The family of this 107-nucleotide RNA sequence from Cellulomonas sp. B6 is "SAM riboswitch aptamer (S box leader)".
The source organism's lineage runs through Bacteria, Bacillati, Actinomycetes, Cellulomonadaceae and Cellulomonas.
[Rfam]
RNA sequence: CGACCAUCCAGAGCGGCUGAGAGACCUGGCUCCGCGACGCCGCAGCAACCCCCCUCCACGCGAGGGUGUGGGUGCUUCCGCCAGGAACGAUGGAGUGACGAUGACCG
Numbered sequence: 001c002g003a004c005c006a007u008c009c010a011g012a013g014c015g016g017c018u019g020a021g022a023g024a025c026c027u028g029g030c031u032c033c034g035c036g037a038c039g040c041c042g043c044a045g046c047a048a049c050c051c052c053c054c055u056c057c058a059c060g061c062g063a064g065g066g067u068g069u070g071g072g073u074g075c076u077u078c079c080g081c082c083a084g085g086a087a088c089g090a091u092g093g094a095g096u097g098a099c100g101a102u103g104a105c106c107g
Stems, first nucleotide, its partner, number of pairs: 001107002005103004013043005021032003026084004044076004049072002051068001053066002080099001
Annotation: Pairs were carried over by alignment from the consensus structure, which is taken from published work.